[Rfam]
Shown here is an 84-nucleotide RNA sequence from Otolemur garnettii, a member of the family "mir-221 microRNA precursor family". It scores 80 bits against the family's covariance model. The base pairs follow the family's consensus structure, which was predicted with RNAalifold. Lineage of the source: Eukaryota > Gnathostomata > Teleostomi > Primates > Otolemur.

RNA sequence: UCUGGCUUGAACCUGGCACACAAUGUAGAUUUCUGUGUUAGUUAGGCAACAGCUACAUUGUCUGCUGGGUUUCAGGCUACCUGG
Numbered sequence: 001u002c003u004g005g006c007u008u009g010a011a012c013c014u015g016g017c018a019c020a021c022a023a024u025g026u027a028g029a030u031u032u033c034u035g036u037g038u039u040a041g042u043u044a045g046g047c048a049a050c051a052g053c054u055a056c057a058u059u060g061u062c063u064g065c066u067g068g069g070u071u072u073c074a075g076g077c078u079a080c081c082u083g084g
Stems, first nucleotide, its partner, number of pairs: 013068006020061009033052004